This 70-nucleotide RNA sequence from Scleropages formosus belongs to the Rfam family "mir-10 microRNA precursor family". A search with the family's covariance model found it, with a score of 68 bits. The base pairs follow the family's consensus structure, which was predicted with PFOLD. Taxonomically the source falls in Scleropages (Eukaryota, Euteleostomi, Actinopteri, Teleostei). A reference for the family is Lee and Ambros (2001), "An extensive class of small RNAs in Caenorhabditis elegans", Science. Its family is annotated with RISC complex and miRNA-mediated post-transcriptional gene silencing in the Gene Ontology.
RNA sequence: UGCCACAAACCCGUAGAUCCGAACUUGUGGCGACUGGCCACACAAGCUCGCGUCUACAGGUGUGUGUCUU
Number, nucleotide and partner (000 for none) at each position: 001u000002g068003c000004c066005a065006c064007a063008a000009a000010c060011c059012c000013g000014u000015a055016g054017a053018u052019c000020c050021g049022a048023a000024c046025u045026u044027g043028u042029g041030g000031c000032g000033a000034c000035u000036g000037g000038c000039c000040a000041c029042a028043c027044a026045a025046g024047c000048u022049c021050g020051c000052g018053u017054c016055u015056a000057c000058a000059g011060g010061u000062g000063u007064g006065u005066g004067u000068c002069u000070u000